A member of the RNA family "FMN riboswitch aptamer (RFN element)" from Candidatus Enterovibrio escicola, 144 nucleotides long.
Rfam links the family to the GO term FMN binding.
Pairs were carried over by alignment from the consensus structure, which is taken from published work.

RNA sequence: AAUAAUUCUCAGGGCGGGAUGAAAUUCCCCACCGGCGGUAUUUCUAGAACAUAGAUAAGCCCGCGAGCGCUCUAAUUUUUGAGGUCAGCAGAUCUGGUAAAAUACCAGAGCCGACGGUUAUAGUCCGGAUGAGAGAGAAUUAAA
Dot-bracket structure: ..((((((((......((.........)).[[((((((....................[[))))..((...................))...(((((.......)))))]])).(((.....]]))).......))))))))..
Numbered sequence: 001a002a003u004a005a006u007u008c009u010c011a012g013g014g015c016g017g018g019a020u021g022a023a024a025u026u027c028c029c030c031a032c033c034g035g036c037g038g039u040a041u042u043u044c045u046a047g048a049a050c051a052u053a054g055a056u057a058a059g060c061c062c063g064c065g066a067g068c069g070c071u072c073u074a075a076u077u078u079u080u081g082a083g084g085u086c087a088g089c090a091g092a093u094c095u096g097g098u099a100a101a102a103u104a105c106c107a108g109a110g111c112c113g114a115c116g117g118u119u120a121u122a123g124u125c126c127g128g129a130u131g132a133g134a135g136a137g138a139a140u141u142a143a144a
Stems, first nucleotide, its partner, number of pairs: 003142008017029002031124002033113002035064004059111002067089002093109005115127003